[Rfam]
RNA sequence: GUGACACUCAAACUGUGGGGGCACUUUCUGGUCUACAACGAAAGUGCCGCCACUUUUUGAGUGUUAU
Dot-bracket structure: ...(((((((((..((((.(((((((((...........))))))))).))))..)))))))))...
RNA: mir-290 microRNA precursor family